[Rfam]
RNA sequence: CCAACCACAAACCAUUCUAUAGCUGAUUUAGCAGCAAUCAGUCUAGCCAGCAGAGCCAAUAGAAUCGUUUCAGUUGG
Numbered sequence: 001c002c003a004a005c006c007a008c009a010a011a012c013c014a015u016u017c018u019a020u021a022g023c024u025g026a027u028u029u030a031g032c033a034g035c036a037a038u039c040a041g042u043c044u045a046g047c048c049a050g051c052a053g054a055g056c057c058a059a060u061a062g063a064a065u066c067g068u069u070u071c072a073g074u075u076g077g
Base pairs, nucleotide, nucleotide: 001077002076003075004074005073009070010069011068012067023041024040025039026038027037028036046056047055

The family of this 77-nucleotide sequence from Candida tropicalis is "bZIP non canonical Hac1/Xbp1 intron". On this family, see Hooks and Griffiths-Jones, RNA Biol 2011: "Conserved RNA structures in the non-canonical Hac1/Xbp1 intron". Rfam's curators put it in the seed alignment. The family's consensus secondary structure was predicted with RNAfold.